[Rfam]
The family of this 82-nucleotide sequence from Coprococcus sp. CAG:782 is "GA-cis RNA".
The match comes from Rfam's covariance-model search (65 bits).

RNA sequence: AUUGUGCCCAUGCGUUGAAAACGCAUAUUUGAAUGGCACAAUCGAUUUGCCGCCGAGUGUAAACGAGGGGGCGUUACCCAUA
Numbered sequence: 001a002u003u004g005u006g007c008c009c010a011u012g013c014g015u016u017g018a019a020a021a022c023g024c025a026u027a028u029u030u031g032a033a034u035g036g037c038a039c040a041a042u043c044g045a046u047u048u049g050c051c052g053c054c055g056a057g058u059g060u061a062a063a064c065g066a067g068g069g070g071g072c073g074u075u076a077c078c079c080a081u082a
Base pairs, nucleotide, nucleotide: 003040004039005038006037007036008035010026011025012024013023014022015021049072050071051070053068054067057064058063
The organism belongs to Coprococcus, within Bacteria.